[Rfam]
RNA sequence: UAAUUUGCCGAUGCAGCAUCAUCAAGAUUCUCAUUUUCAAAAAAAUAAUAAUAUGGAGACAUAAUUUAGAAGCAACUUUAUUUUUUUUUCUACUCCACAUUAUUUCUAUUUUAUGUGAAUCUUGAUGAUGUUGCAGCUGCAAAUAA
Numbered sequence: 001u002a003a004u005u006u007g008c009c010g011a012u013g014c015a016g017c018a019u020c021a022u023c024a025a026g027a028u029u030c031u032c033a034u035u036u037u038c039a040a041a042a043a044a045a046u047a048a049u050a051a052u053a054u055g056g057a058g059a060c061a062u063a064a065u066u067u068a069g070a071a072g073c074a075a076c077u078u079u080a081u082u083u084u085u086u087u088u089u090c091u092a093c094u095c096c097a098c099a100u101u102a103u104u105u106c107u108a109u110u111u112u113a114u115g116u117g118a119a120u121c122u123u124g125a126u127g128a129u130g131u132u133g134c135a136g137c138u139g140c141a142a143a144u145a146a
Base pairs, nucleotide, nucleotide: 010137012135013134014133015132016131017130018129019128020127021126022125023124024123025122026121027120028119029118030117032115033114
A member of the RNA family "mir-172 microRNA precursor family" from Solanum tuberosum, 146 nucleotides long. Rfam links the family to the GO terms miRNA-mediated post-transcriptional gene silencing and RISC complex. The family has 11 seed sequences and 2,076 matches in Rfam 15.1. The literature on the family includes a 2004 paper in Mol Cell by Jones-Rhoades and Bartel, "Computational Identification of Plant MicroRNAs and Their Targets, Including a Stress-Induced miRNA". From the family's description: mir-172 has been experimentally verified in Arabidopsis thaliana. This family is thought to target mRNAs coding for APETALA2-like transcription factors. The mature sequence is excised from the 3' arm of the hairpin.